[Rfam]
Nucleotides: 255
Stems, first nucleotide, its partner, number of pairs: 006031003012026003039047001067109001069107001070105002075100001078094005116133003121128002139182003142178002189231005195225002199217005240255002243252001245250001
Number, partner (000 for none) and nucleotide at each position: 001000u002000g003000g004000c005000g006031c007030c008029c009000a010000g011000c012026g013025u014024g015000g016000g017000g018000c019000u020000c021000g022000a023000g024014c025013a026012c027000g028000g029008g030007g031006g032000a033000u034000c035000c036000a037000g038000u039047g040000a041000a042000g043000g044000a045000c046000g047039c048000c049000g050000c051000a052000u053000c054000g055000g056000g057000u058000g059000c060000a061000c062000c063000c064000a065000c066000a067109u068000c069107c070105g071104g072000a073000c074000g075100c076000u077000u078094c079093u080092c081091a082090g083000g084000a085000g086000c087000c088000u089000g090082c091081u092080g093079a094078g095000a096000a097000a098000c099000u100075g101000a102000a103000g104071c105070c106000g107069g108000u109067g110000a111000g112000u113000u114000a115000a116133u117132g118131c119000g120000g121128c122127g123000a124000u125000c126000a127122u128121g129000g130000g131118g132117c133116a134000a135000g136000a137000a138000a139182u140181g141180a142178g143177u144000a145000a146000a147000c148000a149000u150000g151000a152000a153000u154000u155000a156000u157000u158000u159000g160000u161000g162000g163000a164000g165000c166000a167000g168000u169000u170000a171000g172000g173000a174000c175000a176000a177143g178142c179000a180141u181140u182139a183000a184000a185000g186000g187000c188000a189231c190230g191229a192228g193227g194000a195225g196224u197000a198000a199217a200216g201215g202214u203213g204000a205000a206000a207000g208000u209000g210000a211000a212000a213203c214202a215201u216200u217199u218000a219000u220000g221000u222000a223000a224196a225195u226000a227193u228192u229191u230190u231189g232000a233000u234000u235000a236000u237000a238000u239000c240255a241254a242000a243252g244000a245250u246000c247000u248000c249000u250245g251000c252243c253000c254241u255240u
Annotation
Shown here is a 255-nucleotide RNA sequence from Molossus molossus, a member of the family "Mason-Pfizer monkey virus packaging signal". Taxonomically the source falls in Molossus (Eukaryota, Bilateria, Vertebrata, Boreoeutheria). About the family: This family represents a group of sequences that are related to the Mason-Pfizer monkey virus (MPMV) packaging signal. The packaging signal is located in the 5' UTR and is required for specific RNA encapsidation. Rfam 15.1 lists 2,921 matches to the family in 53 species. It is annotated as a cis-regulatory element.